[Rfam]
RNA sequence: GGGCUGGCUCUAGCUCAGCGGUUCCACCGGUACCUCGGCGUUCUGUCACCAGCCCCUCCGGGGGUUCGAGCACUGCGGGCGCUAUCUGGCCUUUUA
Numbered sequence: 001g002g003g004c005u006g007g008c009u010c011u012a013g014c015u016c017a018g019c020g021g022u023u024c025c026a027c028c029g030g031u032a033c034c035u036c037g038g039c040g041u042u043c044u045g046u047c048a049c050c051a052g053c054c055c056c057u058c059c060g061g062g063g064g065u066u067c068g069a070g071c072a073c074u075g076c077g078g079g080c081g082c083u084a085u086c087u088g089g090c091c092u093u094u095u096a
Stems, first nucleotide, its partner, number of pairs: 002091006013080004018076004028068003